[Rfam]
RNA: mir-317 microRNA precursor family
Organism: Frankliniella occidentalis
RNA sequence: CCCGUGUUGGACUGGGAACCACUCUGUGUUCGCUUGGGAUUUGACACAGUGAACACAGCUGGUGGUAUCUCAGUCCUUCACCGGCA
Numbered sequence: 001c002c003c004g005u006g007u008u009g010g011a012c013u014g015g016g017a018a019c020c021a022c023u024c025u026g027u028g029u030u031c032g033c034u035u036g037g038g039a040u041u042u043g044a045c046a047c048a049g050u051g052a053a054c055a056c057a058g059c060u061g062g063u064g065g066u067a068u069c070u071c072a073g074u075c076c077u078u079c080a081c082c083g084g085c086a
Base pairs, nucleotide, nucleotide: 009076010075011074012073015071016069017068018066019065021063022062023061024058025057026056028054030052031051